[Rfam]
RNA sequence: UGAGUUGAUCGGAUGGUCGCUAGUAAUUGCUAGAGGAAAGUCCGGACUUCAUAGAGUAAAGUGCCAGGUAAUUCCUGGGAGGUGUGAACCUACGGCAAGUGCAGCAGAAAAUAUACCGCCAAGAAAUUGGUAAGGGUGAAAUGGUAGGGUAAGAGCCUACCGCGCAUUUGGUAACAAAUGCGGCAAUGUAAACCCCACUUUGAAGCAAGACCAAAUAGGAAUCCGUUUAGGUUACUCGCUUAGGAUUCGGGUAGGUUGCUUGAGCAAUAUGGCAACAUAUUGCCUAGAUAGAUGACCAUUUAUUACAGAAUCCGGCUUAUAGAUCAACUCGACUC
Numbered sequence: 001u002g003a004g005u006u007g008a009u010c011g012g013a014u015g016g017u018c019g020c021u022a023g024u025a026a027u028u029g030c031u032a033g034a035g036g037a038a039a040g041u042c043c044g045g046a047c048u049u050c051a052u053a054g055a056g057u058a059a060a061g062u063g064c065c066a067g068g069u070a071a072u073u074c075c076u077g078g079g080a081g082g083u084g085u086g087a088a089c090c091u092a093c094g095g096c097a098a099g100u101g102c103a104g105c106a107g108a109a110a111a112u113a114u115a116c117c118g119c120c121a122a123g124a125a126a127u128u129g130g131u132a133a134g135g136g137u138g139a140a141a142u143g144g145u146a147g148g149g150u151a152a153g154a155g156c157c158u159a160c161c162g163c164g165c166a167u168u169u170g171g172u173a174a175c176a177a178a179u180g181c182g183g184c185a186a187u188g189u190a191a192a193c194c195c196c197a198c199u200u201u202g203a204a205g206c207a208a209g210a211c212c213a214a215a216u217a218g219g220a221a222u223c224c225g226u227u228u229a230g231g232u233u234a235c236u237c238g239c240u241u242a243g244g245a246u247u248c249g250g251g252u253a254g255g256u257u258g259c260u261u262g263a264g265c266a267a268u269a270u271g272g273c274a275a276c277a278u279a280u281u282g283c284c285u286a287g288a289u290a291g292a293u294g295a296c297c298a299u300u301u302a303u304u305a306c307a308g309a310a311u312c313c314g315g316c317u318u319a320u321a322g323a324u325c326a327a328c329u330c331g332a333c334u335c
Stems, first nucleotide, its partner, number of pairs: 001331010011320001012300007020033005038318003042315005047205004054237004059200005064078005079093001080091004094195002099193002101189003116135002118131005143161006162184001163182008209257004219248006228242005264283008
RNA: Bacterial RNase P class A
Organism: SAR86 cluster bacterium SAR86E